[Rfam]
RNA sequence: ACCUUAUCAAGAGAGGUGGAGGGAUAGGCCCUGUGAAACCCAGCAACCGCCCUAAGAGGGAAUGGUGCUAAUUCCUACAGAAGAUUUUCUUCUGGAAGAUGAGGU
Numbered sequence: 001a002c003c004u005u006a007u008c009a010a011g012a013g014a015g016g017u018g019g020a021g022g023g024a025u026a027g028g029c030c031c032u033g034u035g036a037a038a039c040c041c042a043g044c045a046a047c048c049g050c051c052c053u054a055a056g057a058g059g060g061a062a063u064g065g066u067g068c069u070a071a072u073u074c075c076u077a078c079a080g081a082a083g084a085u086u087u088u089c090u091u092c093u094g095g096a097a098g099a100u101g102a103g104g105u
Stems, first nucleotide, its partner, number of pairs: 001105008013041001015040003021031003025077004042069004047065002050060003073097001078094006
RNA: SAM riboswitch aptamer (S box leader)
Organism: Tepidibacter thalassicus